[Rfam]
This 127-nucleotide RNA sequence from Anabarilius grahami belongs to the Rfam family "Small nucleolar RNA SNORA65". Rfam describes the family as follows. U65 belongs to the H/ACA class of snoRNAs which are thought to guide the sites of modification of uridines to pseudouridines. Rfam classes the family as an H/ACA-box small nucleolar RNA. Clan: SNORA65 clan. NCBI's taxonomy places the organism under Eukaryota, Eumetazoa, Euteleostomi, Teleostei, Anabarilius. Rfam links the family to the GO terms nucleolus and RNA processing.
RNA sequence: CCCGCCACUGUGCAAGUCUGUGAAAGUGACUGUGUUCUGUCCAGAGGAGGCUUAUAGUGACCCAGCUCUAGGAAGCAGGGCUGCCCAACUUAAUGGGUAACUCUGUGCCGAAAGGCCUGGAACAAGU
Dot-bracket structure: ....((.(((.......(.(((....)).)...).......))).))..............((((((.(.((...(((((...(((........)))...)))))..))..).)).)))).......
The literature on the family includes a 2001 paper in EMBO J by Huttenhofer et al., "RNomics: an experimental approach that identifies 201 candidates for novel, small, non-messenger RNAs in mouse".
It scores 102 bits against the family's covariance model.